Rfam assigns this 79-nucleotide sequence from Salisediminibacterium halotolerans to the family "Glycine riboswitch aptamer".
NCBI's taxonomy places the organism under Bacteria, Bacilli, Caryophanales, Bacillaceae, Salisediminibacterium.
[Rfam]
RNA sequence: GGAGCCGCUUCUGGAGAGACCGUUCCGCAGACGGCGCCGAAGGAUUCAUGAUCUCAGGCAAACGGACAGAAGAAGCAGU
Numbered sequence: 001g002g003a004g005c006c007g008c009u010u011c012u013g014g015a016g017a018g019a020c021c022g023u024u025c026c027g028c029a030g031a032c033g034g035c036g037c038c039g040a041a042g043g044a045u046u047c048a049u050g051a052u053c054u055c056a057g058g059c060a061a062a063c064g065g066a067c068a069g070a071a072g073a074a075g076c077a078g079u
Base pairs, nucleotide, nucleotide: 008072009071010070011069012068013067020034021033022032023031036059037058038057039055040054043053044052045051
Pairs were carried over by alignment from the consensus structure.